RNA: PyrR binding site
RNA sequence: GGUACCUUUAAAUCAGUUCAGAGAGACUGACAAGGAAGCGGAAAAGAAUACGGGAGUAGUGUGUACAAAUGUACAUGCCAUAUUUUCCUAUAUUUAAAAAGAGGCUGAUUGUCAGGUGAAAUCUGAUGAUCAGCCUCUUUUUUAU
Number, nucleotide and partner (000 for none) at each position: 001g000002g000003u037004a000005c035006c034007u033008u032009u000010a000011a000012a000013u030014c029015a028016g027017u026018u025019c000020a000021g000022a000023g000024a000025g018026a017027c016028u015029g014030a013031c000032a008033a007034g006035g005036a000037a003038g000039c000040g000041g000042a000043a000044a000045a000046g000047a000048a000049u000050a000051c000052g000053g084054g083055a000056g081057u080058a000059g078060u077061g076062u075063g074064u073065a072066c071067a000068a000069a000070u000071g066072u065073a064074c063075a062076u061077g060078c059079c000080a057081u056082a000083u054084u053085u000086u000087c000088c000089u000090a000091u000092a000093u000094u000095u000096a000097a000098a140099a139100a138101g137102a136103g135104g134105c133106u132107g131108a130109u129110u128111g127112u126113c125114a124115g123116g122117u000118g000119a000120a000121a000122u116123c115124u114125g113126a112127u111128g110129a109130u108131c107132a106133g105134c104135c103136u102137c101138u100139u099140u098141u000142u000143u000144a000145u000